[Rfam]
RNA sequence: CAAUGAAAUCUGCUUGCGCAGGUGAAAUCUUCUUGAAAAGAUGAAAUCCGCUUCGCGGAUGAAAUCAGCA
Numbered sequence: 001c002a003a004u005g006a007a008a009u010c011u012g013c014u015u016g017c018g019c020a021g022g023u024g025a026a027a028u029c030u031u032c033u034u035g036a037a038a039a040g041a042u043g044a045a046a047u048c049c050g051c052u053u054c055g056c057g058g059a060u061g062a063a064a065u066c067a068g069c070a
Stems, first nucleotide, its partner, number of pairs: 008023006027042005046060006
Rfam assigns this 70-nucleotide RNA from Moschus moschiferus to the family "Gut-1 RNA". NCBI's taxonomy places the organism under Eukaryota, Boreoeutheria, Artiodactyla, Moschidae, Moschus. The family's consensus secondary structure is taken from published work. Rfam 15.1 lists 51 matches to the family in 22 species. A search with the family's covariance model found it, with a score of 53 bits.